RNA sequence: ACGCGGCCAUAACCCUGGCUAUGGUGUUAACCAGGGAGAAGGGACUAGUGGUUAGAGGAGACCCCACGUUAAAA
Numbered sequence: 001a002c003g004c005g006g007c008c009a010u011a012a013c014c015c016u017g018g019c020u021a022u023g024g025u026g027u028u029a030a031c032c033a034g035g036g037a038g039a040a041g042g043g044a045c046u047a048g049u050g051g052u053u054a055g056a057g058g059a060g061a062c063c064c065c066a067c068g069u070u071a072a073a074a
Stems, first nucleotide, its partner, number of pairs: 002068002005065002007043002013036006050063004
RNA: Flavivirus DB element
Organism: Orthoflavivirus nilense